[Rfam]
RNA sequence: GGCUGGUCCAAAAUCAGGGUGGUCCAAAAUCUCAAUUAAUUGUUCACAGUCAGUUACAGAUUGAACUCCUUGUUCUACUCUUUCCCCCUUCUCACUAUUGCACUUGACUAGUCUUAA
Numbered sequence: 001g002g003c004u005g006g007u008c009c010a011a012a013a014u015c016a017g018g019g020u021g022g023u024c025c026a027a028a029a030u031c032u033c034a035a036u037u038a039a040u041u042g043u044u045c046a047c048a049g050u051c052a053g054u055u056a057c058a059g060a061u062u063g064a065a066c067u068c069c070u071u072g073u074u075c076u077a078c079u080c081u082u083u084c085c086c087c088c089u090u091c092u093c094a095c096u097a098u099u100g101c102a103c104u105u106g107a108c109u110a111g112u113c114u115u116a117a
Stems, first nucleotide, its partner, number of pairs: 001113008010105002015100001016096002019093001021091001048079003052076002
Rfam assigns this 117-nucleotide RNA from Propithecus coquereli to the family "Y RNA". Rfam classes the family as a non-coding RNA gene. A reference for the family is Teunissen et al. (2000), "Conserved features of Y RNAs: a comparison of experimentally derived secondary structures", Nucleic Acids Res. NCBI's taxonomy places the organism under Eukaryota, Amniota, Mammalia, Theria, Propithecus. The family has 104 seed sequences and 26,986 matches in Rfam 15.1. The match comes from Rfam's covariance-model search (50 bits).